This 205-nucleotide RNA sequence from Oryza nivara belongs to the Rfam family "MIR812 microRNA precursor family".
RNA sequence: AAAAAGACAAAUCUUGAUUUCCGUAUCCAAUAUUUAACCGUCCAUCUUAUUUGAAAAAAUUAUGAAAAAAAUUAAAAAGAUAAGUCACGCAUAAAGUAUUAAUCAUGUUUUAUCAUCUAACAACAAUAAAAAUAGUAAUUAUCAAAAAAUUUCAUAUAAAAUAGAUAGUCAAACGUUGGCACGGAAACCCAGGGUUUGCCUUUUU
Numbered sequence: 001a002a003a004a005a006g007a008c009a010a011a012u013c014u015u016g017a018u019u020u021c022c023g024u025a026u027c028c029a030a031u032a033u034u035u036a037a038c039c040g041u042c043c044a045u046c047u048u049a050u051u052u053g054a055a056a057a058a059a060u061u062a063u064g065a066a067a068a069a070a071a072u073u074a075a076a077a078a079g080a081u082a083a084g085u086c087a088c089g090c091a092u093a094a095a096g097u098a099u100u101a102a103u104c105a106u107g108u109u110u111u112a113u114c115a116u117c118u119a120a121c122a123a124c125a126a127u128a129a130a131a132a133u134a135g136u137a138a139u140u141a142u143c144a145a146a147a148a149a150u151u152u153c154a155u156a157u158a159a160a161a162u163a164g165a166u167a168g169u170c171a172a173a174c175g176u177u178g179g180c181a182c183g184g185a186a187a188c189c190c191a192g193g194g195u196u197u198g199c200c201u202u203u204u205u
Stems, first nucleotide, its partner, number of pairs: 027179005033173003037169002040166003044162002047159004
Pairs were carried over by alignment from the consensus structure, which was predicted with RNAalifold.